A member of the RNA family "Small nucleolar RNA SNORD94" from Ornithorhynchus anatinus, 136 nucleotides long. Its family is annotated with nucleolus and RNA processing in the Gene Ontology.

RNA sequence: GUGGCUGUGAUGAUCGGCGCAGGGGUACGGACCUCAGCUGCAUCAUGGGAGCUGAGUGUAGGUGGGUCUCUGAGUCCUGCACGUGGUAGGACGGAAGAGAGCACUUACAUGAGACUGGUGCCUAAGUCUGAGCCUC
Numbered sequence: 001g002u003g004g005c006u007g008u009g010a011u012g013a014u015c016g017g018c019g020c021a022g023g024g025g026u027a028c029g030g031a032c033c034u035c036a037g038c039u040g041c042a043u044c045a046u047g048g049g050a051g052c053u054g055a056g057u058g059u060a061g062g063u064g065g066g067u068c069u070c071u072g073a074g075u076c077c078u079g080c081a082c083g084u085g086g087u088a089g090g091a092c093g094g095a096a097g098a099g100a101g102c103a104c105u106u107a108c109a110u111g112a113g114a115c116u117g118g119u120g121c122c123u124a125a126g127u128c129u130g131a132g133c134c135u136c
Base pairs, nucleotide, nucleotide: 001136003134004133005132

Annotation:
The source organism's lineage runs through Eukaryota, Gnathostomata, Euteleostomi, Mammalia and Ornithorhynchus.